Shown here is a 247-nucleotide RNA sequence from Mycoavidus cysteinexigens, a member of the family "Group II catalytic intron D1-D4-6".
The source organism's lineage runs through Bacteria, Pseudomonadati, Pseudomonadota, Betaproteobacteria and Mycoavidus.
Gene Ontology term of the family: Group II intron splicing.

RNA sequence: AAAGUCCCCUGGCGCCAAUUGCCUAUUCGGGCGCCUAGCAGGAGGUAGGGUUAGCCAAGUGAUUGGCUGGCUCAAGUUACCUUGAACGGUAAAUGCAAAACAGCGGGCUGCAAUGCAAGUGAACCCAAAUUAGCCUCGUAAUACGUAGAAGCACUUGCCGACCGCAUCGUCGCAGCGGGAAGGCUGACAGGGGAUGGAAUCCAAAUAGGCAAUAGUGCCAUCCUUCAGGUGCCGGGGUGUUAGGGGU
Number, nucleotide and partner (000 for none) at each position: 001a000002a000003a000004g000005u000006c000007c000008c000009c000010u000011g000012g034013c033014g032015c031016c030017a000018a000019u025020u000021g000022c000023c209024u000025a019026u000027u000028c000029g000030g016031g015032c014033g013034c012035c000036u098037a000038g096039c095040a000041g000042g083043a082044g081045g080046u000047a077048g073049g072050g071051u070052u069053a068054g067055c066056c065057a064058a063059g000060u000061g000062a000063u058064u057065g056066g055067c054068u053069g052070g051071c050072u049073c048074a000075a000076g000077u047078u000079a000080c045081c044082u043083u042084g000085a000086a000087c000088g000089g000090u000091a000092a000093a000094u000095g039096c038097a000098a036099a000100a000101c000102a000103g000104c000105g000106g000107g000108c000109u000110g000111c000112a000113a000114u000115g000116c000117a000118a000119g000120u000121g000122a000123a000124c000125c000126c000127a000128a000129a000130u000131u239132a000133g238134c237135c236136u235137c234138g233139u000140a000141a000142u000143a000144c000145g000146u000147a000148g000149a000150a000151g232152c231153a230154c229155u228156u227157g184158c183159c182160g000161a000162c178163c177164g176165c175166a000167u000168c000169g000170u000171c000172g000173c000174a000175g165176c164177g163178g162179g000180a000181a000182g159183g158184c157185u000186g000187a000188c000189a000190g226191g225192g223193g222194a221195u220196g219197g218198a000199a216200u215201c000202c000203a000204a000205a000206u000207a000208g000209g023210c000211a000212a000213u000214a000215g200216u199217g000218c197219c196220a195221u194222c193223c192224u000225u191226c190227a156228g155229g154230u153231g152232c151233c138234g137235g136236g135237g134238u133239g131240u000241u000242a000243g000244g000245g000246g000247u000